[Rfam]
RNA sequence: CUCGCCCAGGGCUCCUGUAGCUCAGGGGGCAGGCCUGAGCCCUGCGUCCUUCCCAGGACUGUCCAGCCCCCUGACCGGGGCACCCCAUCCUGAGGGGCUUCGCACUGGCCCCCACCGAAGCAGGGGAUCUGACCGACUUGGAGCUCAGCUGGAUGGUACAGACGUGCAAA
Numbered sequence: 001c002u003c004g005c006c007c008a009g010g011g012c013u014c015c016u017g018u019a020g021c022u023c024a025g026g027g028g029g030c031a032g033g034c035c036u037g038a039g040c041c042c043u044g045c046g047u048c049c050u051u052c053c054c055a056g057g058a059c060u061g062u063c064c065a066g067c068c069c070c071c072u073g074a075c076c077g078g079g080g081c082a083c084c085c086c087a088u089c090c091u092g093a094g095g096g097g098c099u100u101c102g103c104a105c106u107g108g109c110c111c112c113c114a115c116c117g118a119a120g121c122a123g124g125g126g127a128u129c130u131g132a133c134c135g136a137c138u139u140g141g142a143g144c145u146c147a148g149c150u151g152g153a154u155g156g157u158a159c160a161g162a163c164g165u166g167c168a169a170a
Stems, first nucleotide, its partner, number of pairs: 008043007017034002020030004044165005060155006068097004076092005099142004106131001107129002110126004143149002